Annotation:
The family of this 91-nucleotide RNA from Canis lupus is "mir-8799 microRNA precursor family". NCBI's taxonomy places the organism under Eukaryota, Eumetazoa, Vertebrata, Laurasiatheria, Canis lupus. Its family is annotated with miRNA-mediated post-transcriptional gene silencing and RISC complex in the Gene Ontology.

RNA sequence: GGGGGGAGUGCAGGAUCCUGGGCUGUGUCCCCGGUGCCCUGGGCUCCCGGGCUUGCGCUGCUGGGAUCUCGCUCCCGGGCCGCAGCUCCCG
Numbered sequence: 001g002g003g004g005g006g007a008g009u010g011c012a013g014g015a016u017c018c019u020g021g022g023c024u025g026u027g028u029c030c031c032c033g034g035u036g037c038c039c040u041g042g043g044c045u046c047c048c049g050g051g052c053u054u055g056c057g058c059u060g061c062u063g064g065g066a067u068c069u070c071g072c073u074c075c076c077g078g079g080c081c082g083c084a085g086c087u088c089c090c091g
Stems, first nucleotide, its partner, number of pairs: 002090005010083002013081002017078002020075003024071002027068001029065003032060006041053001043052003